[Rfam]
RNA sequence: UGUGUCGACGAGGAGGUCAUUGUAGAAGCGUGGUCGUCGCGAUCCCUGCCAGCCCUUUUCAGGGCUGCAAUUCUACA
Numbered sequence: 001u002g003u004g005u006c007g008a009c010g011a012g013g014a015g016g017u018c019a020u021u022g023u024a025g026a027a028g029c030g031u032g033g034u035c036g037u038c039g040c041g042a043u044c045c046c047u048g049c050c051a052g053c054c055c056u057u058u059u060c061a062g063g064g065c066u067g068c069a070a071u072u073c074u075a076c077a
Base pairs, nucleotide, nucleotide: 013046015044016043017042018041021077022076023075024074025073026072027071028040029039030038050067051066052065053064054063055062056061
Background: Mammalian CPEB3 ribozyme: a 77-nucleotide sequence from Parnassius apollo. The match comes from Rfam's covariance-model search (47 bits). About the family: The mammalian CPEB3 ribozyme is a self cleaving RNA located in the second intron of the CPEB3 gene which belongs to a family of genes regulating messenger RNA polyadenylation.